[Rfam]
RNA sequence: GGGGAGAGACUUAGAAUCCCCGUGGACAGACGUGUGAAUAGCAGUGUCUUUGGCCGGGCGCCGCGGUUCGUGAAUC
Number, nucleotide and partner (000 for none) at each position: 001g021002g020003g019004g018005a017006g000007a000008g000009a000010c000011u000012u000013a000014g000015a000016a000017u005018c004019c003020c002021c001022g000023u000024g000025g000026a000027c000028a000029g000030a000031c000032g000033u000034g000035u070036g069037a068038a067039u066040a000041g064042c063043a000044g061045u060046g059047u058048c057049u056050u000051u000052g000053g000054c000055c000056g049057g048058g047059c046060g045061c044062c000063g042064c041065g000066g039067u038068u037069c036070g035071u000072g000073a000074a000075u000076c000
This 76-nucleotide RNA from Prevotellaceae bacterium HUN156 belongs to the Rfam family "L13-Bacteroidia ribosomal protein leader". A search with the family's covariance model found it, with a score of 68 bits. The family's consensus secondary structure is taken from published work.